[Rfam]
Shown here is a 79-nucleotide RNA sequence from Caenorhabditis briggsae, a member of the family "SmY spliceosomal RNA". By type it is a spliceosomal small nuclear RNA. The match comes from Rfam's covariance-model search (80 bits). Pairs were carried over by alignment from the consensus structure, which is taken from published work. Lineage of the source: Eukaryota > Eumetazoa > Rhabditina > Rhabditomorpha > Caenorhabditis.
RNA sequence: AUGUUCUAUUAAAAUCAUUCAGGGCCUUACUUAAGACCCGGUGUACAAUUUUUGGAGCCCUGUCGCUUGCGGCAGGGUA
Number, nucleotide and partner (000 for none) at each position: 001a000002u000003g000004u000005u000006c000007u000008a000009u000010u000011a000012a000013a000014a000015u000016c000017a000018u000019u000020c000021a000022g039023g038024g037025c000026c035027u034028u033029a000030c000031u000032u000033a028034a027035g026036a000037c024038c023039c022040g000041g000042u000043g000044u000045a000046c000047a000048a000049u000050u000051u000052u000053u000054g000055g000056a000057g078058c077059c076060c075061u074062g073063u072064c071065g070066c000067u000068u000069g000070c065071g064072g063073c062074a061075g060076g059077g058078u057079a000